The family of this 128-nucleotide RNA sequence from Aquibacillus salsiterrae is "ylbH leader". From the family's description: This family is a putative regulatory RNA structure that is found upstream of the ylbH gene in B. subtilis and related low GC Gram-positive bacteria. Lineage of the source: Bacteria > Bacillati > Bacillota > Bacillaceae > Aquibacillus. It is annotated as a cis-regulatory leader. A reference for the family is Barrick et al. (2004), "New RNA motifs suggest an expanded scope for riboswitches in bacterial genetic control", Proc Natl Acad Sci U S A. The base pairs follow the family's consensus structure.

RNA sequence: AUAAAAAAAGCCUGCAGAUUAAUAAAAAUCUGCAGGCCCUUUUUGCUUUCUUAAUAGAAAACAAAAAGGCAAAGGGAGAGGAGAAACCGGAGGAAGAACUUAUGGGGAAACGUAAGUCUUCUCCGUCU
Number, nucleotide and partner (000 for none) at each position: 001a000002u000003a000004a000005a000006a000007a000008a000009a000010g000011c036012c035013u034014g033015c032016a031017g030018a029019u028020u000021a000022a000023u000024a000025a000026a000027a000028a019029u018030c017031u016032g015033c014034a013035g012036g011037c076038c075039c074040u073041u072042u000043u000044u000045g062046c000047u060048u059049u058050c057051u000052u000053a000054a000055u000056a000057g050058a049059a048060a047061a000062c045063a000064a000065a000066a000067a000068g000069g000070c000071a000072a041073a040074g039075g038076g037077a000078g000079a000080g000081g000082a000083g000084a000085a000086a000087c000088c125089g124090g123091a122092g000093g121094a120095a119096g118097a000098a117099c116100u115101u114102a113103u000104g000105g000106g000107g000108a000109a000110a000111c000112g000113u102114a101115a100116g099117u098118c096119u095120u094121c093122u091123c090124c089125g088126u000127c000128u000